[Rfam]
RNA sequence: GGGGGUGCACUGGCUUCGACGGGGGUCGCAAAAUCGCUUGGCGCAUGCCGAGGGGGCAGCUUUCCUCGUAAAUCCAGCGGCAAACUCAUAGUUGCCAACGACGACAACUACGCUCUCGCCGCUUAAGGCGUAGCCCCGAACCCAGCUUGUGUCCGUGCUCGCCGGGUGUAGGGUCAUCUAUCACGGAAUCGCCGGGAGUGGCUGCCUGUCAGCUCCCGGUCAACACAAAGCAGGCUGGUCCCGGGGUGCGCUUCGCACACCGUGCUGCUCCGGGACGAGACUCAACGGUGAGCUAAGCAUGUAGUGCCGGGGAUGGAGUGCCUUCGGACGGCGGUUCGAUUCCGCCCACCUCCACCA
Numbered sequence: 001g002g003g004g005g006u007g008c009a010c011u012g013g014c015u016u017c018g019a020c021g022g023g024g025g026u027c028g029c030a031a032a033a034u035c036g037c038u039u040g041g042c043g044c045a046u047g048c049c050g051a052g053g054g055g056g057c058a059g060c061u062u063u064c065c066u067c068g069u070a071a072a073u074c075c076a077g078c079g080g081c082a083a084a085c086u087c088a089u090a091g092u093u094g095c096c097a098a099c100g101a102c103g104a105c106a107a108c109u110a111c112g113c114u115c116u117c118g119c120c121g122c123u124u125a126a127g128g129c130g131u132a133g134c135c136c137c138g139a140a141c142c143c144a145g146c147u148u149g150u151g152u153c154c155g156u157g158c159u160c161g162c163c164g165g166g167u168g169u170a171g172g173g174u175c176a177u178c179u180a181u182c183a184c185g186g187a188a189u190c191g192c193c194g195g196g197a198g199u200g201g202c203u204g205c206c207u208g209u210c211a212g213c214u215c216c217c218g219g220u221c222a223a224c225a226c227a228a229a230g231c232a233g234g235c236u237g238g239u240c241c242c243g244g245g246g247u248g249c250g251c252u253u254c255g256c257a258c259a260c261c262g263u264g265c266u267g268c269u270c271c272g273g274g275a276c277g278a279g280a281c282u283c284a285a286c287g288g289u290g291a292g293c294u295a296a297g298c299a300u301g302u303a304g305u306g307c308c309g310g311g312g313a314u315g316g317a318g319u320g321c322c323u324u325c326g327g328a329c330g331g332c333g334g335u336u337c338g339a340u341u342c343c344g345c346c347c348a349c350c351u352c353c354a355c356c357a
Stems, first nucleotide, its partner, number of pairs: 001353007020326007033314003037310001039309005044301005049068005056081002059078003115133002118131002122127001135173003139169001140167004145162002152187006191220009204235005238276010249264003259289003330346005
Record summary:
This 357-nucleotide RNA sequence from Luteimonas salinisoli belongs to the Rfam family "transfer-messenger RNA". The family is grouped with related families in Rfam's "tRNA clan". The base pairs follow the family's consensus structure, which is taken from published work. The organism belongs to Luteimonas, within Bacteria. Rfam's curators write: Bacterial tmRNA, also known as 10Sa RNA or SsrA, is named for its dual tRNA and mRNA-like properties. Its role is to liberate the mRNA from a stalled ribosome. To accomplish this part of the tmRNA is used as a reading frame that ends in a translation stop signal.